A member of the RNA family "mir-216 microRNA precursor family" from Muraenolepis orangiensis, 77 nucleotides long. Taxonomically the source falls in Muraenolepis (Eukaryota, Gnathostomata, Euteleostomi, Eurypterygia). Gene Ontology terms of the family: RISC complex and miRNA-mediated post-transcriptional gene silencing. The family's consensus secondary structure was predicted with WAR.
RNA sequence: CCUUGGUAAAAUCUCAGCUGGCAACUGUGAGUCUUUCACUAUCUGCACUCACAAUGGCCGCUGGGAUUAUGCUAAAC
Numbered sequence: 001c002c003u004u005g006g007u008a009a010a011a012u013c014u015c016a017g018c019u020g021g022c023a024a025c026u027g028u029g030a031g032u033c034u035u036u037c038a039c040u041a042u043c044u045g046c047a048c049u050c051a052c053a054a055u056g057g058c059c060g061c062u063g064g065g066a067u068u069a070u071g072c073u074a075a076a077c
Base pairs, nucleotide, nucleotide: 003075004074005073006072007071010068011067012066013065014064015063016062017061020059021058022057023055026053027052028051029050030049031048
Dot-bracket structure: ..(((((..((((((((..((((..((((((................)))))).).))).))))))))..)))))..